The record is an 85-nucleotide RNA from Solanum commersonii, which matches "MIR8024 microRNA precursor family" in Rfam. The source organism's lineage runs through Eukaryota, Viridiplantae, eudicotyledons, Solaneae and Solanum. The match comes from Rfam's covariance-model search (93 bits).
[Rfam]
RNA sequence: UUGGAAGAUUUGAAGACUUCAACUUGCAUACUUGGAGAAUUUGAAGAUUUCAACUUGCAGACUUGGGGAUUUGAAGACUUCAACU
Numbered sequence: 001u002u003g004g005a006a007g008a009u010u011u012g013a014a015g016a017c018u019u020c021a022a023c024u025u026g027c028a029u030a031c032u033u034g035g036a037g038a039a040u041u042u043g044a045a046g047a048u049u050u051c052a053a054c055u056u057g058c059a060g061a062c063u064u065g066g067g068g069a070u071u072u073g074a075a076g077a078c079u080u081c082a083a084c085u
Base pairs, nucleotide, nucleotide: 001083002082003081004080005079009075010074011073012072013071014070017068018067019066020065021064025059026058027057028056032053033052034051035050036049037048
Dot-bracket structure: (((((...((((((..(((((...((((...((((((..........))))))..))))....))))).))))))...)))))..